[Rfam]
RNA sequence: GAUAGUGGAAGUUCGGCUAAGAAUGCCACGUCCUGUGGCAACGCCGAACUCACCUGCAUCCGGCAGG
Number, nucleotide and partner (000 for none) at each position: 001g000002a000003u000004a000005g000006u000007g000008g000009a000010a000011g049012u048013u047014c046015g045016g044017c043018u000019a000020a000021g000022a000023a000024u000025g039026c038027c037028a036029c035030g000031u000032c000033c000034u000035g029036u028037g027038g026039c025040a000041a000042c000043g017044c016045c015046g014047a013048a012049c011050u000051c000052a000053c067054c066055u065056g064057c063058a000059u000060c000061c000062g000063g057064c056065a055066g054067g053

Shown here is a 67-nucleotide sequence from Salibacterium salarium, a member of the family "Bacillaceae-1 RNA". It scores 73 bits against the family's covariance model. The family's RNA type in Rfam is small RNA. The source organism's lineage runs through Bacteria, Bacillati, Bacilli, Caryophanales and Salibacterium.